A member of the RNA family "c-di-AMP riboswitch aptamer (ydaO/yuaA leader)" from Kitasatospora viridis, 156 nucleotides long. The base pairs follow the family's consensus structure. About the family: This family represents a conserved RNA structure found upstream of the ydaO and yuaA genes in Bacillus subtilis and related genes in other bacteria. The ydaO/yuaA element is thought to act as a genetic 'off' switch for the ydaO and yuaA genes in its native state.

[Rfam]
RNA sequence: CCGUGCGCGUCGCCUAAUCCGCCGGCCUGCGAGAACGCAGGCCGGGGGAGCCGGGGAACCACGUUCCUUGGGGUGAAUCGGGCCUUCACCGGCCCGUAGGAGACCUUCCUGCUCCGAACCCGUCAGCUAACCCGGUAGGCGCGAGGGAAGGAAAGG
Numbered sequence: 001c002c003g004u005g006c007g008c009g010u011c012g013c014c015u016a017a018u019c020c021g022c023c024g025g026c027c028u029g030c031g032a033g034a035a036c037g038c039a040g041g042c043c044g045g046g047g048g049a050g051c052c053g054g055g056g057a058a059c060c061a062c063g064u065u066c067c068u069u070g071g072g073g074u075g076a077a078u079c080g081g082g083c084c085u086u087c088a089c090c091g092g093c094c095c096g097u098a099g100g101a102g103a104c105c106u107u108c109c110u111g112c113u114c115c116g117a118a119c120c121c122g123u124c125a126g127c128u129a130a131c132c133c134g135g136u137a138g139g140c141g142c143g144a145g146g147g148a149a150g151g152a153a154a155g156g
Base pairs, nucleotide, nucleotide: 011141012140013139014138018049019048020047050136051135052134053133054132055131060070061069071121072120073119079096080095081094082093099115100114101113102112
It scores 89 bits against the family's covariance model.